[Rfam]
RNA sequence: UGAGUGGUUUAGGUAGUUUCGUGAUGUGGGGAUGCUAUUUUAACUCAGCAACACGAAACUAUCUUAACUGCACC
Numbered sequence: 001u002g003a004g005u006g007g008u009u010u011a012g013g014u015a016g017u018u019u020c021g022u023g024a025u026g027u028g029g030g031g032a033u034g035c036u037a038u039u040u041u042a043a044c045u046c047a048g049c050a051a052c053a054c055g056a057a058a059c060u061a062u063c064u065u066a067a068c069u070g071c072a073c074c
Stems, first nucleotide, its partner, number of pairs: 004071006011064009022053002025050003029046003
Background:
A member of the RNA family "mir-196 microRNA precursor family" from Danionella cerebrum, 74 nucleotides long. The family has 84 seed sequences and 1,813 matches in Rfam 15.1. The literature on the family includes a 2003 paper in RNA by Lagos-Quintana et al., "New microRNAs from mouse and human". The base pairs follow the family's consensus structure, which was predicted with PFOLD.